The family of this 162-nucleotide RNA sequence from Hibiscus syriacus is "U1 spliceosomal RNA".
Pairs were carried over by alignment from the consensus structure, which is taken from published work.
Taxonomically the source falls in Hibiscus (Eukaryota, Viridiplantae, Mesangiospermae, Malvoideae).
The family has 100 seed sequences and 40,184 matches in Rfam 15.1.
U1 is a small nuclear RNA (snRNA) component of the spliceosome (involved in pre-mRNA splicing). Its 5' end forms complementary base pairs with the 5' splice junction, thus defining the 5' donor site of an intron. There are significant differences in sequence and secondary structure between metazoan and yeast U1 snRNAs, the latter being much longer (568 nucleotides as compared to 164 nucleotides in human). Nevertheless, secondary structure predictions suggest that all U1 snRNAs share a 'common core' consisting of helices I, II, the proximal region of III, and IV. This family does not contain the larger yeast sequences.
[Rfam]
RNA sequence: AUACUUACCUGGACGGGGUCAAUGGGUGAUCAACAAGACUUAAGGCCUAGGUUAGCGACCUCCAUUGCACUUGGGAGGGGUGCUCGCCUAAGGUCUCCCCAAAGUGGGAGAGCCUACGUCAUAAUUUAUUGCAGUGGGGGCUUGCGUUCGCGCUGCCCCCUU
Numbered sequence: 001a002u003a004c005u006u007a008c009c010u011g012g013a014c015g016g017g018g019u020c021a022a023u024g025g026g027u028g029a030u031c032a033a034c035a036a037g038a039c040u041u042a043a044g045g046c047c048u049a050g051g052u053u054a055g056c057g058a059c060c061u062c063c064a065u066u067g068c069a070c071u072u073g074g075g076a077g078g079g080g081u082g083c084u085c086g087c088c089u090a091a092g093g094u095c096u097c098c099c100c101a102a103a104g105u106g107g108g109a110g111a112g113c114c115u116a117c118g119u120c121a122u123a124a125u126u127u128a129u130u131g132c133a134g135u136g137g138g139g140g141c142u143u144g145c146g147u148u149c150g151c152g153c154u155g156c157c158c159c160c161u162u
Stems, first nucleotide, its partner, number of pairs: 012120004016048005023042005049089003053086001055083003059079003062075002091115003094111003098107002136161005144153003
Dot-bracket structure: ...........(((((((((..(((((..........))))).)))))(((.(.(((.(((((..........)).))).)))..)))).((((((.((......)).))).))).))))...............(((((...(((....)))...))))).